[Rfam]
RNA sequence: GUAUUUGCAUCCGGCAGGCCGGAUGCCUAUAUUGGACCUGCCGGCAACGGCUAUGGCGAUAAAUGGCCAUCGUAAUAAACCUUUCGGACCCGGGGGCGGUACCCGGCGUCUCCACCAACUUCUCCGGCGUUGGCCGGCCAAUGGGGACGAAAUAGGAUCGACGAGGGCGUAAAGGGUGUGUUUUCGCUCGGCAUGGCACUACCGUCAUCAGGCCAUCCUUAAUAGUUGCCAACGACAACUAUGCUGAGGCCCGUCUCGCUGCGUAAUGCGGCGCGAUAGCCUCGUUUAAAAGCCCUUCCGCUCUAGCAGGUGGAAGGCGGGGUUCGCAGGCACCUGGCAACAGAAGCCUGCACU
Dot-bracket structure: .......................................((((....))))...(((((.....(..((((........(((.(((...(((((.......)))))(((((((.............................)))))))............)))))).......))))..)..)))))[[[..(((..((.]]].....)).)))........................................................................................................[[[[..((((((]]]]..........))))))...
The record is a 354-nucleotide RNA from Devosia geojensis, which matches "Alphaproteobacteria transfer-messenger RNA" in Rfam. About the family: Bacterial tmRNA, also known as 10Sa RNA or SsrA, is named for its dual tRNA and mRNA-like properties. Its role is to liberate the mRNA from a stalled ribosome. To accomplish this part of the tmRNA is used as a reading frame that ends in a translation stop signal. Rfam links the family to the GO term RNA catabolic process. It is annotated as a non-coding RNA gene.